[Rfam]
RNA sequence: GUGGUCAAAUUGAUUACAGGUGCCAAAAACAUAUUUGGGUAUGUUGGUCGGUUCACUUUGUGCGCUAAUGGGAGUAUUAACAAUUGCACUUCCAGUUCCGGUCAUCGUCUCCAAU
Numbered sequence: 001g002u003g004g005u006c007a008a009a010u011u012g013a014u015u016a017c018a019g020g021u022g023c024c025a026a027a028a029a030c031a032u033a034u035u036u037g038g039g040u041a042u043g044u045u046g047g048u049c050g051g052u053u054c055a056c057u058u059u060g061u062g063c064g065c066u067a068a069u070g071g072g073a074g075u076a077u078u079a080a081c082a083a084u085u086g087c088a089c090u091u092c093c094a095g096u097u098c099c100g101g102u103c104a105u106c107g108u109c110u111c112c113a114a115u
Stems, first nucleotide, its partner, number of pairs: 001115002004112001008108001011107003016102002020098001022096002038078004051063002